A member of the RNA family "F6 TB sRNA" from Streptomyces sp. BR123, 56 nucleotides long.
By type it is a small RNA.
Lineage of the source: Bacteria > Bacillati > Actinomycetes > Streptomycetaceae > Streptomyces.

[Rfam]
Nucleotides: 056
Base pairs, nucleotide, nucleotide: 002055003054004053005052007049008048009047010046011045012044013043014042015041016040017039019037020036021035
Number, partner (000 for none) and nucleotide at each position: 001000g002055c003054g004053a005052a006000a007049c008048c009047c010046u011045g012044c013043g014042g015041a016040g017039c018000g019037g020036c021035c022000g023000g024000a025000c026000c027000c028000c029000c030000g031000g032000u033000c034000c035021g036020g037019c038000g039017g040016c041015u042014c043013c044012g045011c046010g047009g048008g049007g050000c051000u052005u053004u054003c055002g056000u